[Rfam]
RNA sequence: CUCUGUUUCUAUAGGAUUCAGGGCAAAAGGAG
Numbered sequence: 001c002u003c004u005g006u007u008u009c010u011a012u013a014g015g016a017u018u019c020a021g022g023g024c025a026a027a028a029g030g031a032g
Base pairs, nucleotide, nucleotide: 001023002022003021004020005019008016009015